A member of the RNA family "L31-Firmicutes ribosomal protein leader", 33 nucleotides long.
RNA sequence: CUAUGGUUAUAAUAUUUACCAUGGCGGAAGGAG
Numbered sequence: 001c002u003a004u005g006g007u008u009a010u011a012a013u014a015u016u017u018a019c020c021a022u023g024g025c026g027g028a029a030g031g032a033g
Stems, first nucleotide, its partner, number of pairs: 001024007